Rfam assigns this 221-nucleotide RNA sequence from Trinickia soli to the family "Burkholderia sRNA Bp1_Cand871_SIPHT". The organism belongs to Trinickia, within Bacteria. It scores 158 bits against the family's covariance model. Its family is annotated with bacterial biofilm matrix in the Gene Ontology. Pairs were carried over by alignment from the consensus structure, which was predicted with CMfinder.
[Rfam]
RNA sequence: UCGCCCACAAUGCCCUUCAACGGUUUCAACACAGGUGUGUUCGGUUUGCGCUCGGGUGGCGCCAGCCGGACGUCGAUAUCGAGUCCCGUUGGGGGCAUCUGUGUUGGAGUCGUUGGCGAUGACCUGCGCUGCACGCGCGGUCCAUCGACUCCUUCAUUGGUCUCCUCGCGCUAACCCCGUAGCGUGUGGUUUUUAGCGGGCUAAUAAGCCCGCUUUUUUUU
Numbered sequence: 001u002c003g004c005c006c007a008c009a010a011u012g013c014c015c016u017u018c019a020a021c022g023g024u025u026u027c028a029a030c031a032c033a034g035g036u037g038u039g040u041u042c043g044g045u046u047u048g049c050g051c052u053c054g055g056g057u058g059g060c061g062c063c064a065g066c067c068g069g070a071c072g073u074c075g076a077u078a079u080c081g082a083g084u085c086c087c088g089u090u091g092g093g094g095g096c097a098u099c100u101g102u103g104u105u106g107g108a109g110u111c112g113u114u115g116g117c118g119a120u121g122a123c124c125u126g127c128g129c130u131g132c133a134c135g136c137g138c139g140g141u142c143c144a145u146c147g148a149c150u151c152c153u154u155c156a157u158u159g160g161u162c163u164c165c166u167c168g169c170g171c172u173a174a175c176c177c178c179g180u181a182g183c184g185u186g187u188g189g190u191u192u193u194u195a196g197c198g199g200g201c202u203a204a205u206a207a208g209c210c211c212g213c214u215u216u217u218u219u220u221u
Base pairs, nucleotide, nucleotide: 005160006159007158019114020113021112022111023110024109025108026107027106028105029104030103031102033100034099035098036097037096038095039071040070041069043066046059047058048057049056073082074081075080085094086093087092116143118141164189165188167186168185169184170183171182172181173180195214196213197212198211199210200209201208202207